small nucleolar RNA snoR137: a 148-nucleotide RNA sequence from Papaver somniferum. Gene Ontology terms of the family: RNA processing and nucleolus. The family's RNA type in Rfam is H/ACA-box small nucleolar RNA. The organism belongs to Papaver, within Eukaryota. The family's consensus secondary structure was predicted with RNAalifold. For this family Rfam cites "Mining small RNA sequencing data: a new approach to identify small nucleolar RNAs in Arabidopsis" (Chen and Wu, Nucleic Acids Res, 2009).
RNA sequence: GUUGCUUCUUAGAAUCUUAAUGGGUGAACUAUCUUAAAUAUUUAGAGAAGUUCAUGUAUUUAGAAGCAUAAAUCAAAUUGUGAACCAGUAUUAAACAGCAUGAUGCACUCUUCUAUUCCACCAUUGUUACCUUUCUUCUGGUAUAUUU
Numbered sequence: 001g002u003u004g005c006u007u008c009u010u011a012g013a014a015u016c017u018u019a020a021u022g023g024g025u026g027a028a029c030u031a032u033c034u035u036a037a038a039u040a041u042u043u044a045g046a047g048a049a050g051u052u053c054a055u056g057u058a059u060u061u062a063g064a065a066g067c068a069u070a071a072a073u074c075a076a077a078u079u080g081u082g083a084a085c086c087a088g089u090a091u092u093a094a095a096c097a098g099c100a101u102g103a104u105g106c107a108c109u110c111u112u113c114u115a116u117u118c119c120a121c122c123a124u125u126g127u128u129a130c131c132u133u134u135c136u137u138c139u140g141g142u143a144u145a146u147u148u
Stems, first nucleotide, its partner, number of pairs: 003068006025054005030048001032046003084142005090136001097128003101123002104120002
Dot-bracket structure: ..((((((................((((((.(((.........))).).)))))........))))))...............(((((.(......(((.((.((.............)).))..))).......).)))))......